Glycine riboswitch aptamer: a 67-nucleotide RNA sequence from Thalassococcus profundi. Taxonomically the source falls in Thalassococcus (Bacteria, Pseudomonadati, Pseudomonadota, Alphaproteobacteria). It scores 37 bits against the family's covariance model. Pairs were carried over by alignment from the consensus structure.
[Rfam]
RNA sequence: CUCUGGAGAGAGAUGCGGCUUGCCCGCAUCCGCCGAAGGGAUAACGAUCUCAGGCGACGGGACAGAG
Numbered sequence: 001c002u003c004u005g006g007a008g009a010g011a012g013a014u015g016c017g018g019c020u021u022g023c024c025c026g027c028a029u030c031c032g033c034c035g036a037a038g039g040g041a042u043a044a045c046g047a048u049c050u051c052a053g054g055c056g057a058c059g060g061g062a063c064a065g066a067g
Stems, first nucleotide, its partner, number of pairs: 001067005012030004032055003035051002039049002